[Rfam]
RNA sequence: GGUUGGUCUAAGCGCAAUGGUGUUUGCAGCCAAGUGAUCACAAACAGUUACGGAUUUUUUUGUUCCUUGUCCACUCGCACUCUUUUAUUUGACUAGGUUUUA
Numbered sequence: 001g002g003u004u005g006g007u008c009u010a011a012g013c014g015c016a017a018u019g020g021u022g023u024u025u026g027c028a029g030c031c032a033a034g035u036g037a038u039c040a041c042a043a044a045c046a047g048u049u050a051c052g053g054a055u056u057u058u059u060u061u062g063u064u065c066c067u068u069g070u071c072c073a074c075u076c077g078c079a080c081u082c083u084u085u086u087a088u089u090u091g092a093c094u095a096g097g098u099u100u101u102a
Stems, first nucleotide, its partner, number of pairs: 001098001003096006010090002014086001016081001018079002022076001028064003032060002

A member of the RNA family "Y RNA" from Mandrillus leucophaeus, 102 nucleotides long. It scores 39 bits against the family's covariance model. Rfam describes the family as follows. Y RNAs are components of the Ro ribonucleoprotein particle (Ro RNP), in association with Ro60 and La proteins. The source organism's lineage runs through Eukaryota, Bilateria, Gnathostomata, Teleostomi and Mandrillus.